Rfam assigns this 155-nucleotide RNA sequence from Brachionus calyciflorus to the family "U4atac minor spliceosomal RNA".
The family is grouped with related families in Rfam's "U4 clan".
Rfam 15.1 lists 1,648 matches to the family in 818 species.
The base pairs follow the family's consensus structure, which is taken from published work.
From the family's description: U4atac is an essential component of the minor U12-type spliceosome complex which is required for removal of the rarer class of eukaryotic introns (AT-AC, U12-type).
Rfam links the family to the GO terms mRNA 5'-splice site recognition, U4atac snRNP and spliceosomal tri-snRNP complex assembly.
It scores 70 bits against the family's covariance model.
RNA sequence: ACCGUUCUUGUCUUGGGACAGUUGACUAUCCCAUGAACGCAUAGUGAGGGUAGUUUUGCUGACACCUAUAUUACGUAUAGAUUUCAUGUCUAUAAUUGAAAAACCGCACCGAACUCGACACUAAACCGUCUUGUUUGGGUGCAAUUUCUGACUGC
Numbered sequence: 001a002c003c004g005u006u007c008u009u010g011u012c013u014u015g016g017g018a019c020a021g022u023u024g025a026c027u028a029u030c031c032c033a034u035g036a037a038c039g040c041a042u043a044g045u046g047a048g049g050g051u052a053g054u055u056u057u058g059c060u061g062a063c064a065c066c067u068a069u070a071u072u073a074c075g076u077a078u079a080g081a082u083u084u085c086a087u088g089u090c091u092a093u094a095a096u097u098g099a100a101a102a103a104c105c106g107c108a109c110c111g112a113a114c115u116c117g118a119c120a121c122u123a124a125a126c127c128g129u130c131u132u133g134u135u136u137g138g139g140u141g142c143a144a145u146u147u148c149u150g151a152c153u154g155c
Stems, first nucleotide, its partner, number of pairs: 005020001006018004021059002024056001025054007037045002106142005114133001117130003